Shown here is a 75-nucleotide RNA sequence from Streptomyces himastatinicus, a member of the family "ASpks TB sRNA". Rfam classes the family as an antisense RNA.

RNA sequence: CUUGAUGGAGCCGAGCCACAGCGGCUGAUCCUCCGGCCGCUCCUGACCGUACGUGGCCAGCAGCGCCUGCGCCUC
Numbered sequence: 001c002u003u004g005a006u007g008g009a010g011c012c013g014a015g016c017c018a019c020a021g022c023g024g025c026u027g028a029u030c031c032u033c034c035g036g037c038c039g040c041u042c043c044u045g046a047c048c049g050u051a052c053g054u055g056g057c058c059a060g061c062a063g064c065g066c067c068u069g070c071g072c073c074u075c
Stems, first nucleotide, its partner, number of pairs: 014026004031071001033069001038065002043060003047056003